[Rfam]
RNA sequence: AAUCCUUUUAAAGACAGUCCCGUGAGGCUGGCAAAGGAGGUCAAAGCAGGCAGAAAUAUGCCCUUUUAUACCCUCUUUGUAGCUUCACAGCUAUAAAGAGGUUUUUUU
Number, nucleotide and partner (000 for none) at each position: 001a000002a000003u038004c037005c036006u035007u034008u033009u000010a000011a000012a000013g000014a000015c030016a029017g028018u027019c026020c000021c000022g000023u000024g000025a000026g019027g018028c017029u016030g015031g000032c000033a008034a007035a006036g005037g004038a003039g000040g069041u068042c000043a066044a065045a064046g063047c000048a000049g062050g061051c060052a059053g000054a000055a000056a000057u000058a000059u052060g051061c050062c049063c046064u045065u044066u043067u000068a041069u040070a103071c000072c101073c100074u099075c098076u097077u096078u095079g094080u093081a092082g091083c090084u000085u000086c000087a000088c000089a000090g083091c082092u081093a080094u079095a078096a077097a076098g075099a074100g073101g072102u000103u070104u000105u000106u000107u000108u000
RNA: PyrR binding site
Organism: Bacillus sp. FJAT-49736